This 126-nucleotide sequence from Halalkalibacter krulwichiae belongs to the Rfam family "PyrR binding site". Its family is annotated with pyrimidine nucleobase biosynthetic process and pyrimidine nucleobase transport in the Gene Ontology. This family represents the PyrR binding site and terminator structure. This RNA structure is found upstream of a variety of genes involved in pyrimidine biosynthesis and transport. The alignment also includes a portion of the antiterminator structure.
RNA sequence: UAGUCCUUUAACUACAGUCCCGUGAGGCUGAGAAGGAAAACGAACGGAAGCAGCAGAUGCAAUCUGUCUGUACUUACUAACGUCUUUUAUCCUCUCUGUCUUUAUAAGGACAGAGAGGUUUUUCGU
Numbered sequence: 001u002a003g004u005c006c007u008u009u010a011a012c013u014a015c016a017g018u019c020c021c022g023u024g025a026g027g028c029u030g031a032g033a034a035g036g037a038a039a040a041c042g043a044a045c046g047g048a049a050g051c052a053g054c055a056g057a058u059g060c061a062a063u064c065u066g067u068c069u070g071u072a073c074u075u076a077c078u079a080a081c082g083u084c085u086u087u088u089a090u091c092c093u094c095u096c097u098g099u100c101u102u103u104a105u106a107a108g109g110a111c112a113g114a115g116a117g118g119u120u121u122u123u124c125g126u
Base pairs, nucleotide, nucleotide: 004037005036006035007034008033009032015030016029017028018027019026046078047077049075050074053071054070055069056068057067058066059065089120091118092117093116094115095114096113097112098111099110100109101108

NCBI's taxonomy places the organism under Bacteria, Bacillati, Bacillota, Bacilli, Halalkalibacter.